[Rfam]
RNA sequence: ACGACCUUACUUGAACAGGAUCUGUUCUAUAGGAUCGUACCUCUGUAUCCUUUAUCACUAAGGAGACAGGAACCUAAGUCUGGUUGACGAAUCAUGACCGUGUGAUCAUAGCGUGAUUAAUGGCUUGAUGUUCCCAGUGAAUCAUCAUGGCUGUAGAGGAUCGUUCUCCUGUCAUUGAUUUGGCAUGGGGAUGGUCAUGCGGUUGUCUGACAGACC
Numbered sequence: 001a002c003g004a005c006c007u008u009a010c011u012u013g014a015a016c017a018g019g020a021u022c023u024g025u026u027c028u029a030u031a032g033g034a035u036c037g038u039a040c041c042u043c044u045g046u047a048u049c050c051u052u053u054a055u056c057a058c059u060a061a062g063g064a065g066a067c068a069g070g071a072a073c074c075u076a077a078g079u080c081u082g083g084u085u086g087a088c089g090a091a092u093c094a095u096g097a098c099c100g101u102g103u104g105a106u107c108a109u110a111g112c113g114u115g116a117u118u119a120a121u122g123g124c125u126u127g128a129u130g131u132u133c134c135c136a137g138u139g140a141a142u143c144a145u146c147a148u149g150g151c152u153g154u155a156g157a158g159g160a161u162c163g164u165u166c167u168c169c170u171g172u173c174a175u176u177g178a179u180u181u182g183g184c185a186u187g188g189g190g191a192u193g194g195u196c197a198u199g200c201g202g203u204u205g206u207c208u209g210a211c212a213g214a215c216c
Base pairs, nucleotide, nucleotide: 001038002037003035005033006032007031013027014026015025016024017023018022043069044068045067046066048064049063050062051061052060078215079214080213081212082211097203098202099201100200101199102198103197104196105195106194107193108192110165111164112163113162120154121153122152123151124150125149126147127146128145129144130143132141134139166189167188168187170185171184172183173182174181
Record summary
This 216-nucleotide sequence from Salix viminalis belongs to the Rfam family "Plant small nucleolar RNA U3". Taxonomically the source falls in Salix (Eukaryota, eudicotyledons, rosids, Malpighiales). The family's consensus secondary structure is taken from published work. On this family, see Zwieb, Nucleic Acids Res 1997: "The uRNA database". Small nucleolar RNAs (snoRNAs) are involved in the processing and modification of rRNA in the nucleolus. There are two main classes of snoRNAs: the box C/D class, and the box H/ACA class. U3 snoRNA is a member of the box C/D class.